[Rfam]
RNA: FMN riboswitch aptamer (RFN element)
Organism: Paenibacillus sp. UNCCL117
RNA sequence: CUUACCUUUCGGGGCAGGGUGAAAUUCCCUACCGGCGGUGUUGUACGGCAGCUUCGGCAGCCGUCUCAGUCCGUGAGCUGCGUUACAUCUUGCUGCAGCAGCAAGUUAUAGCGUUUGCCGACUCGGUGCAAAUCCGAGACCGACAGUAUAGUCUGGAUGGGAGAAGGGGAAG
Numbered sequence: 001c002u003u004a005c006c007u008u009u010c011g012g013g014g015c016a017g018g019g020u021g022a023a024a025u026u027c028c029c030u031a032c033c034g035g036c037g038g039u040g041u042u043g044u045a046c047g048g049c050a051g052c053u054u055c056g057g058c059a060g061c062c063g064u065c066u067c068a069g070u071c072c073g074u075g076a077g078c079u080g081c082g083u084u085a086c087a088u089c090u091u092g093c094u095g096c097a098g099c100a101g102c103a104a105g106u107u108a109u110a111g112c113g114u115u116u117g118c119c120g121a122c123u124c125g126g127u128g129c130a131a132a133u134c135c136g137a138g139a140c141c142g143a144c145a146g147u148a149u150a151g152u153c154u155g156g157a158u159g160g161g162a163g164a165a166g167g168g169g170a171a172g
Stems, first nucleotide, its partner, number of pairs: 003170001005168006017029003031152002033142002035074004069140002077118002122138005144155003